[Rfam]
RNA sequence: GCAUGCCUGGCUCCCUGUAUGCCAUUCGCAAAGCCUAUCAAGAGUCUGGUGGUCUCCGCGGAUGGCAUGCGAGGAGUCAUGCAGGC
Numbered sequence: 001g002c003a004u005g006c007c008u009g010g011c012u013c014c015c016u017g018u019a020u021g022c023c024a025u026u027c028g029c030a031a032a033g034c035c036u037a038u039c040a041a042g043a044g045u046c047u048g049g050u051g052g053u054c055u056c057c058g059c060g061g062a063u064g065g066c067a068u069g070c071g072a073g074g075a076g077u078c079a080u081g082c083a084g085g086c
Stems, first nucleotide, its partner, number of pairs: 001086002004083003008079007016071009027060003
RNA: mir-160 microRNA precursor family